[Rfam]
RNA sequence: GCUGCCGGAGAAUUUGUUAAAAAUUACAUCGCAUGGUGAAUCCCCCUCAGCGGCGGGGCAUCUGGCAAAGUGUAUGAUCCAGAGAACAUGCAAAUUCAGUAGACAGGCUGAAUUUACCGGGAGGCCCCUGGCACCAUGCGACAGACAGAAAUUAGGCUAUACUUCAGCCCCUCUCCGGAGGGGCUUUUCUGUGC
Numbered sequence: 001g002c003u004g005c006c007g008g009a010g011a012a013u014u015u016g017u018u019a020a021a022a023a024u025u026a027c028a029u030c031g032c033a034u035g036g037u038g039a040a041u042c043c044c045c046c047u048c049a050g051c052g053g054c055g056g057g058g059c060a061u062c063u064g065g066c067a068a069a070g071u072g073u074a075u076g077a078u079c080c081a082g083a084g085a086a087c088a089u090g091c092a093a094a095u096u097c098a099g100u101a102g103a104c105a106g107g108c109u110g111a112a113u114u115u116a117c118c119g120g121g122a123g124g125c126c127c128c129u130g131g132c133a134c135c136a137u138g139c140g141a142c143a144g145a146c147a148g149a150a151a152u153u154a155g156g157c158u159a160u161a162c163u164u165c166a167g168c169c170c171c172u173c174u175c176c177g178g179a180g181g182g183g184c185u186u187u188u189c190u191g192u193g194c
Stems, first nucleotide, its partner, number of pairs: 014148003031139008043058004063081003084091001092115004097110003117131005156194002166185007
Record summary
Gammaproteobacterial sRNA STnc100: a 194-nucleotide RNA from Escherichia albertii. Rfam classes the family as a small RNA.